[Rfam]
The record is a 103-nucleotide RNA from Streptococcus satellite phage Javan468, which matches "Streptococcus sRNA SpF41" in Rfam. The family's consensus secondary structure was predicted with mfold. Rfam classes the family as a small RNA. The literature on the family includes a 2012 paper in PLoS Pathog by Mann et al., "Control of virulence by small RNAs in Streptococcus pneumoniae".
RNA sequence: CAAGCACAAAGAGUAGUAUAUAGGGAUUACGCCUUGAUGGAGGAGAUUCCGGUGCGAAUCCGUGUCAUUGUGCUAGCAUCUAGGAAACUAGGUGCUUUUGAUU
Numbered sequence: 001c002a003a004g005c006a007c008a009a010a011g012a013g014u015a016g017u018a019u020a021u022a023g024g025g026a027u028u029a030c031g032c033c034u035u036g037a038u039g040g041a042g043g044a045g046a047u048u049c050c051g052g053u054g055c056g057a058a059u060c061c062g063u064g065u066c067a068u069u070g071u072g073c074u075a076g077c078a079u080c081u082a083g084g085a086a087a088c089u090a091g092g093u094g095c096u097u098u099u100g101a102u103u
Base pairs, nucleotide, nucleotide: 003074004073005072006071007070008069009068013065032043033042034041035040048064050062051061052060076095077094078093079092080091081090082089083088